The record is a 223-nucleotide RNA sequence from Muraenolepis orangiensis, which matches "Small nucleolar RNA SNORA73 family" in Rfam. Rfam describes the family as follows. U17 (SNORA73A and SNORA73B) also known as E1 belongs to the H/ACA class of small nucleolar RNAs (snoRNAs). By type it is an H/ACA-box small nucleolar RNA. Clan: snR30-U17 clan. The literature on the family includes a 1996 paper in RNA by Enright et al., "5'ETS rRNA processing facilitated by four small RNAs: U14, E3, U17, and U3". The base pairs follow the family's consensus structure, which is taken from published work. A search with the family's covariance model found it, with a score of 183 bits.
[Rfam]
RNA sequence: CCGACGUGGGCACCCUGUGAGUAGCUCUCGCAUGGCUCUACCCUUGUGGCGUAUGGGAGCGUAGCUUUACGCUGUGACGUACAGUCCCGUUCCACGACGUCGGAGAACAAGCUCGGUCCCCGGCUCUCGGGCCGGCGAGGACCCGGGCCUUCUGUAUAUUCCUAUAACUUCCCAGAGCCUUCCCGGGCCGUGACUGGGGAGCUAAACCAUGCAGAGGACAAAA
Numbered sequence: 001c002c003g004a005c006g007u008g009g010g011c012a013c014c015c016u017g018u019g020a021g022u023a024g025c026u027c028u029c030g031c032a033u034g035g036c037u038c039u040a041c042c043c044u045u046g047u048g049g050c051g052u053a054u055g056g057g058a059g060c061g062u063a064g065c066u067u068u069a070c071g072c073u074g075u076g077a078c079g080u081a082c083a084g085u086c087c088c089g090u091u092c093c094a095c096g097a098c099g100u101c102g103g104a105g106a107a108c109a110a111g112c113u114c115g116g117u118c119c120c121c122g123g124c125u126c127u128c129g130g131g132c133c134g135g136c137g138a139g140g141a142c143c144c145g146g147g148c149c150u151u152c153u154g155u156a157u158a159u160u161c162c163u164a165u166a167a168c169u170u171c172c173c174a175g176a177g178c179c180u181u182c183c184c185g186g187g188c189c190g191u192g193a194c195u196g197g198g199g200a201g202c203u204a205a206a207c208c209a210u211g212c213a214g215a216g217g218a219c220a221a222a223a
Stems, first nucleotide, its partner, number of pairs: 001103007008043003012039001014035002018030004046095004055088004059082001061080002064075002151215007168201006177188004